RNA sequence: UCGACUGUACUCGAACAGGAUCAUUUCUAUAGUGAAUCCGAAUGUACUGAGCUACAGAACUUGACAACACCUCUAUCCGUGAAGAUGAGUUAUCCAUCCCACCAUAAUGGGAAGUGUAGCACAUCCCUAGGUCCUCAUCUUUGAGUCUCAGGGAUGCGGUUUUGAUGACCUGGUGGACCUCUUUUCUUAGGGGGAGGGUCCUAAUGGUGUGGAUGAUUCUGAACGG
Numbered sequence: 001u002c003g004a005c006u007g008u009a010c011u012c013g014a015a016c017a018g019g020a021u022c023a024u025u026u027c028u029a030u031a032g033u034g035a036a037u038c039c040g041a042a043u044g045u046a047c048u049g050a051g052c053u054a055c056a057g058a059a060c061u062u063g064a065c066a067a068c069a070c071c072u073c074u075a076u077c078c079g080u081g082a083a084g085a086u087g088a089g090u091u092a093u094c095c096a097u098c099c100c101a102c103c104a105u106a107a108u109g110g111g112a113a114g115u116g117u118a119g120c121a122c123a124u125c126c127c128u129a130g131g132u133c134c135u136c137a138u139c140u141u142u143g144a145g146u147c148u149c150a151g152g153g154a155u156g157c158g159g160u161u162u163u164g165a166u167g168a169c170c171u172g173g174u175g176g177a178c179c180u181c182u183u184u185u186c187u188u189a190g191g192g193g194g195a196g197g198g199u200c201c202u203a204a205u206g207g208u209g210u211g212g213a214u215g216a217u218u219c220u221g222a223a224c225g226g
Stems, first nucleotide, its partner, number of pairs: 001041003006035001008034004017028004045069001048066002077226004095215005100209006108172004118161003122156007177199004182195003

The record is a 226-nucleotide sequence from Cryptosporidium muris, which matches "ACEA small nucleolar RNA U3" in Rfam. For this family Rfam cites "Comparative analysis of eukaryotic U3 snoRNA" (Marz and Stadler, RNA Biol, 2010). About the family: Small nucleolar RNAs (snoRNAs) are involved in the processing and modification of rRNA in the nucleolus. There are two main classes of snoRNAs: the box C/D class, and the box H/ACA class. Its family is annotated with nucleolus and RNA processing in the Gene Ontology.